[Rfam]
RNA sequence: AUCUUAUCGAGAGAGGUGGAGGGACUGGCCCUGUGAAACCUCAGCAACCGGCUAUCGCCAAGGUGCUAAAUCCAGCAAGCUCGUGCUUGGUAGAUGAGGA
Numbered sequence: 001a002u003c004u005u006a007u008c009g010a011g012a013g014a015g016g017u018g019g020a021g022g023g024a025c026u027g028g029c030c031c032u033g034u035g036a037a038a039c040c041u042c043a044g045c046a047a048c049c050g051g052c053u054a055u056c057g058c059c060a061a062g063g064u065g066c067u068a069a070a071u072c073c074a075g076c077a078a079g080c081u082c083g084u085g086c087u088u089g090g091u092a093g094a095u096g097a098g099g100a
Stems, first nucleotide, its partner, number of pairs: 002099007013042005021031003025075004043067004048063002050059003071092001076089005
RNA: SAM riboswitch aptamer (S box leader)